RNA sequence: AUACGGUUUAAAAAACUGCCUAAGACAGUAGGGGAGCUCGACUCAUAAAUAUCCUACCGAGGACAAGACGUAUCAUGUAAAAAGAAGCGUAUUGUACUUUCGUGUCUAGGUUUGGGCGCGUUUUUCUUUUUGAAAA
Number, nucleotide and partner (000 for none) at each position: 001a000002u000003a000004c000005g000006g000007u000008u000009u000010a000011a000012a000013a000014a000015a000016c000017u000018g000019c000020c000021u000022a000023a000024g000025a000026c000027a000028g057029u056030a055031g054032g053033g052034g044035a043036g042037c000038u000039c000040g000041a000042c036043u035044c034045a000046u000047a000048a000049a000050u000051a000052u033053c032054c031055u030056a029057c028058c000059g000060a000061g000062g000063a000064c000065a000066a000067g000068a000069c000070g000071u000072a000073u000074c000075a000076u000077g000078u000079a000080a000081a000082a000083a000084g000085a000086a000087g000088c000089g000090u000091a000092u000093u000094g000095u000096a000097c000098u000099u000100u000101c120102g119103u118104g117105u116106c115107u114108a113109g000110g000111u000112u000113u108114g107115g106116g105117c104118g103119c102120g101121u000122u000123u000124u000125u000126c000127u000128u000129u000130u000131u000132g000133a000134a000135a000136a000